This 48-nucleotide RNA from Pseudomonas mangrovi belongs to the Rfam family "Guanidine-II riboswitch aptamer (mini-ykkC)". The literature on the family includes a 2007 paper in Nucleic Acids Res by Weinberg et al., "Identification of 22 candidate structured RNAs in bacteria using the CMfinder comparative genomics pipeline". The family's consensus secondary structure is taken from published work.

RNA sequence: CGGCAGGGACGACCCUGCCGCGCCUAGCGCUUCCGAGGGACGGCCCUC
Numbered sequence: 001c002g003g004c005a006g007g008g009a010c011g012a013c014c015c016u017g018c019c020g021c022g023c024c025u026a027g028c029g030c031u032u033c034c035g036a037g038g039g040a041c042g043g044c045c046c047u048c
Stems, first nucleotide, its partner, number of pairs: 001020008035048005